This 78-nucleotide RNA sequence from Microbispora oryzae belongs to the Rfam family "Actino-pnp RNA".
The family's RNA type in Rfam is cis-regulatory element.
RNA sequence: GCCGGUCCUCGGUAGUGGCCCCCGGUCGGCGCGGCGAGAGCCGUACGGACGGACCGGGCGCUUCGAUCGAAGACCGGC
Number, nucleotide and partner (000 for none) at each position: 001g078002c077003c076004g075005g074006u073007c072008c000009u070010c069011g068012g067013u066014a000015g000016u000017g062018g061019c060020c000021c058022c057023c056024g055025g054026u053027c052028g000029g050030c000031g000032c000033g000034g000035c000036g000037a000038g000039a000040g000041c000042c000043g000044u000045a000046c000047g000048g000049a000050c029051g000052g027053a026054c025055c024056g023057g022058g021059c000060g019061c018062u017063u000064c000065g000066a013067u012068c011069g010070a009071a000072g007073a006074c005075c004076g003077g002078c001
The base pairs follow the family's consensus structure, which is taken from published work. Taxonomically the source falls in Microbispora (Bacteria, Bacillati, Actinomycetes, Streptosporangiales). It scores 61 bits against the family's covariance model.